This 145-nucleotide RNA from Affinibrenneria salicis belongs to the Rfam family "radC RNA".
[Rfam]
Nucleotides: 145
Base pairs, nucleotide, nucleotide: 011039012038013037014036016034020032023029024028045067046066047065048064049063050062053090054089055088056087068086069085071083072082073081074080119145120144126139127138128137129136130135
Number, partner (000 for none) and nucleotide at each position: 001000g002000u003000a004000a005000a006000u007000u008000g009000u010000c011039a012038g013037u014036g015000u016034u017000a018000c019000a020032c021000c022000g023029g024028u025000g026000c027000u028024g029023c030000a031000a032020g033000c034016a035000g036014c037013a038012c039011u040000c041000c042000c043000a044000u045067g046066u047065u048064g049063c050062c051000a052000c053090g054089a055088c056087c057000u058000u059000c060000a061000a062050g063049g064048c065047a066046a067045c068086g069085c070000u071083c072082a073081g074080g075000c076000c077000c078000a079000a080074c081073c082072u083071g084000u085069g086068u087056g088055g089054u090053c091000a092000a093000c094000u095000c096000c097000c098000a099000a100000c101000c102000c103000g104000c105000c106000c107000c108000g109000c110000u111000a112000c113000c114000g115000c116000u117000u118000u119145g120144c121000g122000g123000g124000u125000g126139a127138u128137c129136g130135c131000u132000g133000c134000g135130g136129c137128g138127a139126u140000g141000g142000u143000a144120g145119c
The family's consensus secondary structure is taken from published work. Rfam classes the family as a cis-regulatory element.